[Rfam]
RNA sequence: GAGGGGUACGGCGACGAGGCUCGCCGCAACCGCACCGCACAGGGCGCUGAUGGCCUCUACGUGAUG
Numbered sequence: 001g002a003g004g005g006g007u008a009c010g011g012c013g014a015c016g017a018g019g020c021u022c023g024c025c026g027c028a029a030c031c032g033c034a035c036c037g038c039a040c041a042g043g044g045c046g047c048u049g050a051u052g053g054c055c056u057c058u059a060c061g062u063g064a065u066g
Base pairs, nucleotide, nucleotide: 010025011024012023013022016057017056018055019054020053021052032047033046035044